The record is a 64-nucleotide RNA from Capra hircus, which matches "MAT2A 3'UTR stem loop B" in Rfam. Lineage of the source: Eukaryota > Opisthokonta > Amniota > Laurasiatheria > Capra. It scores 49 bits against the family's covariance model. The literature on the family includes a 2011 paper in Genome Res by Parker et al., "New families of human regulatory RNA structures identified by comparative analysis of vertebrate genomes". The family's consensus secondary structure is taken from published work.
Nucleotides: 064
Stems, first nucleotide, its partner, number of pairs: 002063004008057002012053001016046005022040003025031002
Number, partner (000 for none) and nucleotide at each position: 001000a002063c003062a004061a005060g006000a007000a008057c009056u010000u011000u012053g013000u014000a015000u016046c017045u018044u019043u020042c021000a022040g023039a024038u025031g026030u027000c028000a029000a030026a031025c032000a033000g034000a035000g036000a037000a038024g039023u040022c041000a042020g043019a044018g045017a046016g047000c048000a049000c050000u051000g052000c053012c054000u055000g056009a057008g058000g059000g060005c061004u062003u063002g064000c